[Rfam]
RNA sequence: ACCCCCAAGCCUCUUAACAAUGCUCAAAUCGGGGGUC
Numbered sequence: 001a002c003c004c005c006c007a008a009g010c011c012u013c014u015u016a017a018c019a020a021u022g023c024u025c026a027a028a029u030c031g032g033g034g035g036u037c
Stems, first nucleotide, its partner, number of pairs: 001036006008024003
Rfam assigns this 37-nucleotide RNA sequence to the family "abiF RNA". Actinobacteria, Bacteroidetes, Clostridia, Proteobacteria, one Clostridia phage. Rfam classes the family as a small RNA. The family's consensus secondary structure is taken from published work.